About this RNA: Rfam assigns this 63-nucleotide sequence from Kryptolebias marmoratus to the family "mir-7552 microRNA precursor family". Its family is annotated with RISC complex and miRNA-mediated post-transcriptional gene silencing in the Gene Ontology.
RNA sequence: UUACAAUUAAAGGAUAUUUCUCGUGACUGUAAUGCAAACGGAAGUAUCUCUUAAUUGUUUGGU
Number, nucleotide and partner (000 for none) at each position: 001u000002u000003a058004c057005a056006a055007u054008u053009a052010a051011a000012g049013g048014a047015u046016a045017u044018u043019u042020c041021u040022c000023g000024u036025g035026a000027c000028u000029g000030u000031a000032a000033u000034g000035c025036a024037a000038a000039c000040g021041g020042a019043a018044g017045u016046a015047u014048c013049u012050c000051u010052u009053a008054a007055u006056u005057g004058u003059u000060u000061g000062g000063u000
The source organism's lineage runs through Eukaryota, Opisthokonta, Cyprinodontiformes, Aplocheiloidei and Kryptolebias.
The base pairs follow the family's consensus structure, which was predicted with RNAalifold.
Rfam 15.1 lists 220 matches to the family in 102 species.